[Rfam]
RNA sequence: UAAAAAGAGGUUUUUAGCUACCCUCUUAAAAAAACUAAGAAAAC
Numbered sequence: 001u002a003a004a005a006a007g008a009g010g011u012u013u014u015u016a017g018c019u020a021c022c023c024u025c026u027u028a029a030a031a032a033a034a035c036u037a038a039g040a041a042a043a044c
Stems, first nucleotide, its partner, number of pairs: 006026005015037002